RNA sequence: GGCGGGCCUCCCCGCAUUGUGAGGUAGUGAAUCUGGUCAGAUCCGGAAGGAAGCAGCCACAGCUAUUUUUCGCAAGUGCCGGGGGUUCGGCUCGCCACCC
Numbered sequence: 001g002g003c004g005g006g007c008c009u010c011c012c013c014g015c016a017u018u019g020u021g022a023g024g025u026a027g028u029g030a031a032u033c034u035g036g037u038c039a040g041a042u043c044c045g046g047a048a049g050g051a052a053g054c055a056g057c058c059a060c061a062g063c064u065a066u067u068u069u070u071c072g073c074a075a076g077u078g079c080c081g082g083g084g085g086u087u088c089g090g091c092u093c094g095c096c097a098c099c100c
Stems, first nucleotide, its partner, number of pairs: 004093005009085006015076001017075006023067006034059004042051003
This 100-nucleotide RNA sequence from Nitrosomonas europaea belongs to the Rfam family "Bacterial small signal recognition particle RNA".
Rfam describes the family as follows. The signal recognition particle (SRP) is a universally conserved ribonucleoprotein involved in the co-translational targeting of proteins to membranes.
A reference for the family is Rosenblad et al. (2003), "SRPDB: Signal Recognition Particle Database", Nucleic Acids Res.
By type it is a non-coding RNA gene.
The base pairs follow the family's consensus structure, which is taken from published work.